The record is a 247-nucleotide RNA from Bacillus manliponensis, which matches "T-box leader" in Rfam. Taxonomically the source falls in Bacillus (Bacteria, Bacillota, Bacilli, Bacillaceae). Rfam describes the family as follows. Uncharged tRNA acts as the effector for transcription antitermination of genes in the T-box leader family.
RNA sequence: GUAAAAUCGAUGAGCAAGAAGAGUACGUAUAUUUGAGGCGUUCAGAGAGCUGGGGAAAGGUGUGAGCCCGGUACGAUAAAAUAUACAGAAUGGGCUUGCGAGAGGUAUGUUGAACGAUUAGUAGGCAACCCGGGUUCCGCCGUUACAAGGAUAGGAUAUCGGAAGUAUUUCCUGUAUCUGAAAAGUGGGAUAGUUAUAUCCAAUCGAGGUGGUACCACGGUAUUAUAUUACAUAUAUCGUCCUCUAU
Number, nucleotide and partner (000 for none) at each position: 001g000002u000003a000004a000005a000006a000007u103008c102009g000010a000011u000012g000013a000014g000015c098016a097017a096018g095019a000020a000021g000022a000023g000024u000025a000026c000027g086028u085029a084030u083031a082032u000033u000034u000035g000036a000037g000038g000039c075040g074041u073042u000043c000044a000045g000046a000047g000048a000049g072050c071051u070052g069053g068054g067055g000056a000057a000058a000059g000060g000061u000062g000063u000064g000065a000066g000067c054068c053069c052070g051071g050072u049073a041074c040075g039076a000077u000078a000079a000080a000081a000082u031083a030084u029085a028086c027087a000088g000089a000090a000091u000092g000093g000094g000095c018096u017097u016098g015099c000100g000101a000102g008103a007104g000105g129106u128107a000108u127109g126110u125111u124112g000113a000114a000115c000116g000117a000118u000119u000120a000121g000122u000123a000124g111125g110126c109127a108128a106129c105130c000131c142132g141133g140134g000135u000136u000137c000138c000139g000140c133141c132142g131143u000144u000145a000146c000147a000148a000149g000150g000151a000152u000153a000154g000155g000156a000157u000158a000159u000160c000161g000162g000163a000164a000165g000166u000167a000168u000169u000170u000171c000172c000173u000174g000175u000176a000177u000178c000179u000180g000181a000182a000183a000184a000185g000186u000187g000188g201189g200190a199191u198192a197193g000194u000195u000196a000197u192198a191199u190200c189201c188202a000203a000204u000205c000206g244207a243208g242209g241210u000211g000212g000213u000214a000215c000216c000217a240218c239219g238220g237221u236222a235223u234224u000225a000226u000227a000228u000229u000230a000231c000232a000233u000234a223235u222236a221237u220238c219239g218240u217241c209242c208243u207244c206245u000246a000247u000